[Rfam]
RNA: Small nucleolar RNA snR60/Z15/Z230/Z193/J17
Organism: Tenebrio molitor
RNA sequence: UUGAAGAAUAUAAUGAUGAAUUCAUAGUUCAAAUGAACAUAAUAAUUGAUUACAAUCAAAUUUGUCUUUCACCCCUAACUGAUUCUAUCG
Numbered sequence: 001u002u003g004a005a006g007a008a009u010a011u012a013a014u015g016a017u018g019a020a021u022u023c024a025u026a027g028u029u030c031a032a033a034u035g036a037a038c039a040u041a042a043u044a045a046u047u048g049a050u051u052a053c054a055a056u057c058a059a060a061u062u063u064g065u066c067u068u069u070c071a072c073c074c075c076u077a078a079c080u081g082a083u084u085c086u087a088u089c090g
Stems, first nucleotide, its partner, number of pairs: 005086004